[Rfam]
RNA sequence: AGCCCCCGGACCCACGGUGCAGUGCUGCAUCUCUGGUCAGCUGGGAGUCUGAGAUGAAGCACUGUAGCUCGGGACGGCGGCGCA
Dot-bracket structure: ..........(((..(.(((((((((.((((((.((((......)).)).)))))).))))))))).)..)))...........
Numbered sequence: 001a002g003c004c005c006c007c008g009g010a011c012c013c014a015c016g017g018u019g020c021a022g023u024g025c026u027g028c029a030u031c032u033c034u035g036g037u038c039a040g041c042u043g044g045g046a047g048u049c050u051g052a053g054a055u056g057a058a059g060c061a062c063u064g065u066a067g068c069u070c071g072g073g074a075c076g077g078c079g080g081c082g083c084a
Stems, first nucleotide, its partner, number of pairs: 011073003016068001018066009028056006035049002037046002